[Rfam]
RNA sequence: AAACAGUGAUGAGAAAACCAAUGCCUGACUUGAUAUCAAGAUGUCACCUCUGUGUAUCCAUCUUGUUGAUCAAGGCAUGACCAGCAAUCUUCUCUCUGAGUUU
Numbered sequence: 001a002a003a004c005a006g007u008g009a010u011g012a013g014a015a016a017a018c019c020a021a022u023g024c025c026u027g028a029c030u031u032g033a034u035a036u037c038a039a040g041a042u043g044u045c046a047c048c049u050c051u052g053u054g055u056a057u058c059c060a061u062c063u064u065g066u067u068g069a070u071c072a073a074g075g076c077a078u079g080a081c082c083a084g085c086a087a088u089c090u091u092c093u094c095u096c097u098g099a100g101u102u103u
Stems, first nucleotide, its partner, number of pairs: 001102001003101002038064006